Yersinia sRNA 251: a 194-nucleotide RNA from Enterobacter sp. FY-07. The literature on the family includes a 2015 paper in PLoS Genet by Nuss et al., "Transcriptomic profiling of Yersinia pseudotuberculosis reveals reprogramming of the Crp regulon by temperature and uncovers Crp as a master regulator of small RNAs". The organism belongs to Enterobacter, within Bacteria. The family's consensus secondary structure was predicted with RNAfold.
[Rfam]
Nucleotides: 194
Base pairs, nucleotide, nucleotide: 002054003053004052005051006050014041015040016039017038018037019036061078063076065074066073067072083112084111088107093102094101095100113193114192116190117189119188120187121186122185125134126133127132137166138165139164144158145157146156171183174180
Number, partner (000 for none) and nucleotide at each position: 001000c002054g003053u004052a005051g006050g007000c008000u009000u010000u011000c012000a013000g014041c015040g016039u017038g018037c019036g020000c021000u022000g023000a024000c025000a026000g027000a028000g029000u030000g031000c032000a033000g034000a035000a036019c037018g038017u039016a040015c041014g042000c043000a044000a045000u046000c047000a048000u049000c050006u051005u052004u053003g054002u055000u056000a057000a058000a059000g060000c061078g062000u063076a064000c065074g066073a067072u068000a069000c070000c071000a072067a073066u074065c075000a076063u077000c078061u079000c080000g081000u082000c083112u084111u085000c086000c087000u088107c089000a090000a091000a092000a093102c094101g095100c096000g097000c098000c099000a100095g101094u102093g103000c104000a105000u106000c107088g108000c109000u110000c111084a112083g113193a114192c115000c116190c117189g118000a119188c120187u121186u122185c123000a124000c125134g126133c127132c128000g129000g130000a131000a132127g133126g134125c135000a136000a137166g138165u139164c140000a141000c142000a143000c144158u145157g146156g147000g148000u149000a150000a151000u152000a153000u154000c155000a156146c157145c158144a159000u160000u161000g162000a163000c164139g165138a166137u167000g168000a169000c170000g171183g172000u173000c174180a175000c176000g177000u178000u179000u180174u181000c182000c183171c184000c185122g186121a187120g188119g189117c190116g191000c192114g193113u194000u